[Rfam]
RNA: Ciliate telomerase RNA
RNA sequence: UUAUACCCGCACAUUCACUCAAAUCUGUAAUAGACUUGUCAUUCAACCCCAAAAAUCUAGUGCAAAUAUUACCUUCGCCAAUUAGGUACAAUUAAUGGUUCUCGCGGGACAAAAGACUAUCGACAUUUGAUACAUUAUUUAUCAAUGGAUGUCUUAUUUUUCUU
Dot-bracket structure: .....((((((........(((.(((.....))).)))...............................(.(((....[..[[))).).....]]..]...).)))))....(((((.(((..((.((((((.......)))))))))))))))).........